[Rfam]
This 142-nucleotide sequence from Apaloderma vittatum belongs to the Rfam family "Small nucleolar RNA SNORA12". From the family's description: U108 belongs to the H/ACA family of snoRNAs. The sequence is predicted to guide the pseudouridylation of the U372 residue in the 28S rRNA subunit. However it has not been reported as a pseudouridylation site. It is annotated as an H/ACA-box small nucleolar RNA. Rfam 15.1 lists 571 matches to the family in 378 species. The organism belongs to Apaloderma, within Eukaryota.
RNA sequence: UAUUGUGGUAGUUUCUGGUUUUGGCAGUUCUGUAACUGUAUCAGAGCGGCCUUGAACUAUCACAGAGAUCAGAAAGGAGAAGGCUGUGCUGAGAACUUUUUCAAGCUUUUAGUUUUCAGCUUUUUGUUCAGCUCCUACAGGA
Numbered sequence: 001u002a003u004u005g006u007g008g009u010a011g012u013u014u015c016u017g018g019u020u021u022u023g024g025c026a027g028u029u030c031u032g033u034a035a036c037u038g039u040a041u042c043a044g045a046g047c048g049g050c051c052u053u054g055a056a057c058u059a060u061c062a063c064a065g066a067g068a069u070c071a072g073a074a075a076g077g078a079g080a081a082g083g084c085u086g087u088g089c090u091g092a093g094a095a096c097u098u099u100u101u102c103a104a105g106c107u108u109u110u111a112g113u114u115u116u117c118a119g120c121u122u123u124u125u126g127u128u129c130a131g132c133u134c135c136u137a138c139a140g141g142a
Stems, first nucleotide, its partner, number of pairs: 005063007023051003027047006076135004103125003